[Rfam]
RNA sequence: CCUACAUACUUCUUCAUAUGCCCAUAUGGAGCCGGCCGGUGCUAUGGAAUGUUAAGAAGUAUGUAUUUUUGGG
Numbered sequence: 001c002c003u004a005c006a007u008a009c010u011u012c013u014u015c016a017u018a019u020g021c022c023c024a025u026a027u028g029g030a031g032c033c034g035g036c037c038g039g040u041g042c043u044a045u046g047g048a049a050u051g052u053u054a055a056g057a058a059g060u061a062u063g064u065a066u067u068u069u070u071g072g073g
Stems, first nucleotide, its partner, number of pairs: 003065012016052004022047005

mir-1 microRNA precursor family: a 73-nucleotide sequence from Spizella passerina. About the family: This family represents the microRNA (miRNA) mir-1 family. miRNAs are transcribed as ~70nt precursors (modelled here) and subsequently processed by the Dicer enzyme to give a ~22nt product. In this case the mature sequence comes from the 3' arm of the precursor. The extents of the hairpin precursors are not generally known and are estimated based on hairpin prediction. The products are thought to have regulatory roles through complementarity to mRNA. The involvement of Dicer in miRNA processing suggests a relationship with the phenomenon of RNA interference. miRNAs are numbered based on the sequence of the mature RNA. This family also contains the mir-206 from human, which appears to be related to mir-1. Rfam links the family to the GO terms RISC complex and miRNA-mediated post-transcriptional gene silencing. The family has 137 seed sequences and 4,474 matches in Rfam 15.1. The base pairs follow the family's consensus structure, which was predicted with RNAalifold. The organism belongs to Spizella, within Eukaryota.